[Rfam]
RNA sequence: GCCCCGUUGACGGAUUGAACGGUAGCCGGUAGCGAGAACCGGACGGGGU
Numbered sequence: 001g002c003c004c005c006g007u008u009g010a011c012g013g014a015u016u017g018a019a020c021g022g023u024a025g026c027c028g029g030u031a032g033c034g035a036g037a038a039c040c041g042g043a044c045g046g047g048g049u
Stems, first nucleotide, its partner, number of pairs: 001049007011021002017033001023036001026042005
RNA: DUF2693-FD RNA